[Rfam]
Overview:
This 140-nucleotide RNA from Sciurus carolinensis belongs to the Rfam family "Human acetyl-coA cholesterol acyltransferase mRNA". NCBI's taxonomy places the organism under Eukaryota, Bilateria, Euarchontoglires, Sciuridae, Sciurus. Gene Ontology term of the family: regulation of translational initiation. The base pairs follow the family's consensus structure, which is taken from published work. On this family, see Chen et al., Cell Res 2008: "RNA secondary structures located in the interchromosomal region of human ACAT1 chimeric mRNA are required to produce the 56-kDa isoform". It is annotated as a cis-regulatory element. A search with the family's covariance model found it, with a score of 43 bits.
RNA sequence: UUGCCGCUGGCGGCGUUGCGGGCCCUGGCCCCGGGACGGCUUUCCCUGCCGACCUUCCCGCCGCCGUGCAGUGACGGCUGCCCAGCCCGGCCCUCUUUGCCGAAGUCCCGCAGCCCGGCCGGGGCCCAGGUAAUGCCCAU
Numbered sequence: 001u002u003g004c005c006g007c008u009g010g011c012g013g014c015g016u017u018g019c020g021g022g023c024c025c026u027g028g029c030c031c032c033g034g035g036a037c038g039g040c041u042u043u044c045c046c047u048g049c050c051g052a053c054c055u056u057c058c059c060g061c062c063g064c065c066g067u068g069c070a071g072u073g074a075c076g077g078c079u080g081c082c083c084a085g086c087c088c089g090g091c092c093c094u095c096u097u098u099g100c101c102g103a104a105g106u107c108c109c110g111c112a113g114c115c116c117g118g119c120c121g122g123g124g125c126c127c128a129g130g131u132a133a134u135g136c137c138c139a140u
Base pairs, nucleotide, nucleotide: 011015031085034082035081038079039078040077043074044073046071047070048069049068050066051065053063099125100124101123105120107118108117110115